[Rfam]
RNA sequence: UUCUCCUCUUGUACCCAUUGCAUGUUGGAGUUGUGAAUGCUCAAAACACCUCCGGUGUGCAUGGACUACAGGAGGG
Numbered sequence: 001u002u003c004u005c006c007u008c009u010u011g012u013a014c015c016c017a018u019u020g021c022a023u024g025u026u027g028g029a030g031u032u033g034u035g036a037a038u039g040c041u042c043a044a045a046a047c048a049c050c051u052c053c054g055g056u057g058u059g060c061a062u063g064g065a066c067u068a069c070a071g072g073a074g075g076g
Base pairs, nucleotide, nucleotide: 002075003074004073005072006071007070015064016063017062018061020060021059022058023057024056025055027053028052029051030050032048033047034046
This 76-nucleotide RNA sequence from Erinaceus europaeus belongs to the Rfam family "mir-660 microRNA precursor family". Gene Ontology terms of the family: miRNA-mediated post-transcriptional gene silencing and RISC complex. The base pairs follow the family's consensus structure, which was predicted with RNAalifold. A search with the family's covariance model found it, with a score of 89 bits.